A member of the RNA family "mir-172 microRNA precursor family" from Ensete ventricosum, 97 nucleotides long. A search with the family's covariance model found it, with a score of 80 bits. mir-172 has been experimentally verified in Arabidopsis thaliana. This family is thought to target mRNAs coding for APETALA2-like transcription factors. On this family, see Jones-Rhoades and Bartel, Mol Cell 2004: "Computational Identification of Plant MicroRNAs and Their Targets, Including a Stress-Induced miRNA". Pairs were carried over by alignment from the consensus structure, which was predicted with PFOLD. The organism belongs to Ensete, within Eukaryota. The family has 11 seed sequences and 2,076 matches in Rfam 15.1.
[Rfam]
RNA sequence: AUGUUUGCCGGUGUAGCACCAUCAAGAUUCACAUGUACUGAGUUAUAAAGCUCUCUGCUGCAAAUGGGAAUCUUGAUGAUGCUGCAUUGGCAAUAAG
Numbered sequence: 001a002u003g004u005u006u007g008c009c010g011g012u013g014u015a016g017c018a019c020c021a022u023c024a025a026g027a028u029u030c031a032c033a034u035g036u037a038c039u040g041a042g043u044u045a046u047a048a049a050g051c052u053c054u055c056u057g058c059u060g061c062a063a064a065u066g067g068g069a070a071u072c073u074u075g076a077u078g079a080u081g082c083u084g085c086a087u088u089g090g091c092a093a094u095a096a097g
Base pairs, nucleotide, nucleotide: 010088011087012086013085014084015083016082017081018080020078021077022076023075024074025073026072027071028070029069030068032066033065